Rfam assigns this 508-nucleotide sequence from Catenulispora acidiphila to the family "Saccharopolyspora sRNA 350". The literature on the family includes a 2013 paper in PLoS One by Liu et al., "Prediction and characterization of small non-coding RNAs related to secondary metabolites in Saccharopolyspora erythraea".
RNA sequence: UUGACGGCCGCGCCGCCGCCCGCGGUGGUCUGGAAGACCUCGUCGCCCAGGUGGUCGCCGUCGGCGAGGUGGCCGUGCACGGCGUCGUCGCCGUACUUGCCCUGGCCGGUCAGGUCGACCUUGCCGUGGGCGAUCAGCCACAGGGUGUCCACCGGCGUCCCGGCCUCGGUCAGCGUCUGCCCGGCCCGGAGCUCGCGCACGGAAAAGCGCGAGGCCAGCUCGGCCAGCAACGCCUCGUCGGCGAAGUCGCGCAGCGGCGGCAGCUCGGUCAGGGUCGGCGCCAGCACGCGCACGUCGUCGUCCCCGGCCUGGCUGAACGCCACCCGGCCGCGCCCGACGGCGUGGCUCAGGCGGCGGUUGACCCGGUAGGCGCCGCCGGAGGCCUCGAUCCACGGCAGCACGCGCAGCAGCCAGCGGGAGGUGAUGCCCUGCAUCUGCGGCGGCGUCUUGGUGGUGGUGGCCAGGUUCCGCGCCGCCGCGGUGUCCAGGCUGAGCUGAUCGCCCUCGG
Numbered sequence: 001u002u003g004a005c006g007g008c009c010g011c012g013c014c015g016c017c018g019c020c021c022g023c024g025g026u027g028g029u030c031u032g033g034a035a036g037a038c039c040u041c042g043u044c045g046c047c048c049a050g051g052u053g054g055u056c057g058c059c060g061u062c063g064g065c066g067a068g069g070u071g072g073c074c075g076u077g078c079a080c081g082g083c084g085u086c087g088u089c090g091c092c093g094u095a096c097u098u099g100c101c102c103u104g105g106c107c108g109g110u111c112a113g114g115u116c117g118a119c120c121u122u123g124c125c126g127u128g129g130g131c132g133a134u135c136a137g138c139c140a141c142a143g144g145g146u147g148u149c150c151a152c153c154g155g156c157g158u159c160c161c162g163g164c165c166u167c168g169g170u171c172a173g174c175g176u177c178u179g180c181c182c183g184g185c186c187c188g189g190a191g192c193u194c195g196c197g198c199a200c201g202g203a204a205a206a207g208c209g210c211g212a213g214g215c216c217a218g219c220u221c222g223g224c225c226a227g228c229a230a231c232g233c234c235u236c237g238u239c240g241g242c243g244a245a246g247u248c249g250c251g252c253a254g255c256g257g258c259g260g261c262a263g264c265u266c267g268g269u270c271a272g273g274g275u276c277g278g279c280g281c282c283a284g285c286a287c288g289c290g291c292a293c294g295u296c297g298u299c300g301u302c303c304c305c306g307g308c309c310u311g312g313c314u315g316a317a318c319g320c321c322a323c324c325c326g327g328c329c330g331c332g333c334c335c336g337a338c339g340g341c342g343u344g345g346c347u348c349a350g351g352c353g354g355c356g357g358u359u360g361a362c363c364c365g366g367u368a369g370g371c372g373c374c375g376c377c378g379g380a381g382g383c384c385u386c387g388a389u390c391c392a393c394g395g396c397a398g399c400a401c402g403c404g405c406a407g408c409a410g411c412c413a414g415c416g417g418g419a420g421g422u423g424a425u426g427c428c429c430u431g432c433a434u435c436u437g438c439g440g441c442g443g444c445g446u447c448u449u450g451g452u453g454g455u456g457g458u459g460g461c462c463a464g465g466u467u468c469c470g471c472g473c474c475g476c477c478g479c480g481g482u483g484u485c486c487a488g489g490c491u492g493a494g495c496u497g498a499u500c501g502c503c504c505u506c507g508g
Base pairs, nucleotide, nucleotide: 006390007389009387010386012384014382018328019327022324024321025320026319027318029316030315032313035310036309038307039306042302044300045299047297049295052229055226057224058223059222060221062108063107064106065105072100074099075098077096079094080093081092082091083090114219115218117216119214120213123210124209127206128200130198131197132196137193141191146188147187152184153183154182155181157180158175162171163170164169234290237287238286241285242284246282248280249279250278251276253275255273258267259266329342330341331340352378353377354376355375356374357373362370363369391431392430394428395427396426397425399423400422401421403418405416407415437476438475439474440473442471445468447465448464449463450462451461452460477507478506480503481502482501486497487496488495
The family's RNA type in Rfam is antisense RNA.